A member of the RNA family "PyrR binding site" from Paenibacillus sp. NEAU-GSW1, 173 nucleotides long.
RNA sequence: AGUACCUUUAAAUCAGCCCCGUGAGGCUGGCAAGGUAGCGUGAAUAACAGAUCAAACAACUAUGGAAUCGAGCUUUUUGUCGAACUGUGUCCUGCUGGGACGCAGAGGCAAAGUCGGCUCUCUAUAGUUAUCUGGUCUCACUCUCCUUGCGUACACGCAAGGAGUUUUUUUAU
Numbered sequence: 001a002g003u004a005c006c007u008u009u010a011a012a013u014c015a016g017c018c019c020c021g022u023g024a025g026g027c028u029g030g031c032a033a034g035g036u037a038g039c040g041u042g043a044a045u046a047a048c049a050g051a052u053c054a055a056a057c058a059a060c061u062a063u064g065g066a067a068u069c070g071a072g073c074u075u076u077u078u079g080u081c082g083a084a085c086u087g088u089g090u091c092c093u094g095c096u097g098g099g100a101c102g103c104a105g106a107g108g109c110a111a112a113g114u115c116g117g118c119u120c121u122c123u124a125u126a127g128u129u130a131u132c133u134g135g136u137c138u139c140a141c142u143c144u145c146c147u148u149g150c151g152u153a154c155a156c157g158c159a160a161g162g163a164g165u166u167u168u169u170u171u172a173u
Base pairs, nucleotide, nucleotide: 003037004036005035006034007033008032013030014029015028016027017026018025051136052135053134054133056131058129059128060127061126062125063124064123065122066121140167143164144163145162146161147160148159149158150157151156

About this RNA:
It scores 62 bits against the family's covariance model.